[Rfam]
Nucleotides: 310
Stems, first nucleotide, its partner, number of pairs: 001040003004023007028037003041310004046305004053297002055293008067284003071278002074275002079272004084268005090262001095260006102250002105248005111241001113239007120180004127173001129171007137163001181185001188231005199222002206215003
Number, partner (000 for none) and nucleotide at each position: 001040c002039c003038c004023g005022g006021c007020c008019a009018g010017g011000g012000u013000c014000g015000c016000g017010c018009c019008u020007g021006g022005c023004u024000g025000u026000a027000g028037c029036c030035c031000g032000a033000g034000u035030g036029g037028g038003g039002g040001g041310a042309g043308u044307g045000u046305g047304u048303c049302u050000g051000g052000a053297c054296u055293g056292u057291g058290c059289g060288g061287g062286c063000g064000a065000g066000g067284c068283c069282g070000a071278g072277g073000g074275c075274c076000c077000a078000u079272c080271u081270u082269u083000a084268c085267c086266a087265a088264u089000g090262c091000c092000g093000a094000u095260c096259c097258u098257g099256c100255g101000c102250c103249g104000a105248c106247u107246u108245c109244a110000a111241g112000u113239u114238g115237g116236c117235g118234g119233u120180c121179g122178c123177c124000a125000u126000u127173g128000c129171u130170c131169a132168c133167c134166g135165g136000g137163c138000g139000g140000a141000a142000g143000c144000u145000u146000g147000g148000u149000g150000g151000u152000a153000a154000a155000u156000c157000c158000u159000a160000u161000g162000c163137g164000a165135c166134u167133g168132g169131u170130g171129g172000a173127c174000u175000u176000g177123g178122g179121u180120g181185a182000u183000g184000a185181u186000g187000c188231g189230a190229g191228g192227c193000g194000g195000a196000a197000c198000g199222c200221c201000a202000c203000a204000g205000g206215c207214u208213g209000g210000a211000a212000a213208c214207a215206g216000a217000g218000c219000a220000a221200g222199g223000a224000a225000a226000a227192g228191u229190c230189u231188c232000c233119g234118c235117c236116g237115u238114c239113a240000u241111c242000a243000g244109u245108g246107a247106a248105g249103c250102g251000a252000u253000c254000a255100c256099g257098u258097g259096g260095g261000u262090g263000a264088a265087u266086u267085g268084g269082g270081g271080g272079g273000c274075g275074g276000a277072u278071c279000a280000c281000c282069c283068g284067g285000a286062g287061c288060c289059c290058g291057c292056g293055u294000g295000a296054g297053g298000c299000a300000u301000a302049g303048g304047a305046u306000u307044u308043a309042c310041u
About this RNA:
Rfam assigns this 310-nucleotide sequence from Guillardia theta to the family "Metazoan signal recognition particle RNA". A search with the family's covariance model found it, with a score of 118 bits. Its family is annotated with signal recognition particle, endoplasmic reticulum targeting and SRP-dependent cotranslational protein targeting to membrane, signal sequence recognition in the Gene Ontology. It is annotated as a non-coding RNA gene. Pairs were carried over by alignment from the consensus structure, which is taken from published work. Rfam's curators write: The signal recognition particle (SRP) is a universally conserved ribonucleoprotein. It is involved in the co-translational targeting of proteins to membranes. The eukaryotic SRP consists of a 300-nucleotide 7S RNA and six proteins: SRPs 72, 68, 54, 19, 14, and 9. Archaeal SRP consists of a 7S RNA and homologues of the eukaryotic SRP19 and SRP54 proteins. Eukaryotic and archaeal 7S RNAs have very similar secondary structures, as represented by this family. Eight helical elements fold into the Alu and S domains, separated by a long linker region. The Alu domain is thought to mediate the peptide chain elongation retardation function of the SRP. The universally conserved helix which interacts with the SRP54 M domain mediates signal sequence recognition. In eukaryotes and archaea, the SRP19-helix 6 complex is thought to be involved in SRP assembly and stabilises helix 8 for SRP54 binding. The Signal Recognition Particle Database (SRPDB) provides compilations of SRP components, with phylogenetic data and structural illustrations. Many sequences below the threshold for this family are clearly closely related, but are most likely to be SRP RNA derived pseudogenes. The human genome in particular is known to contain a large amount of SRP RNA related sequence, including Alu repeats. While the threshold of this family is set high so as to minimise the number of hits to such regions, it is likely that some remain. Its Rfam clan is "SRP clan". The organism belongs to Guillardia theta, within Eukaryota.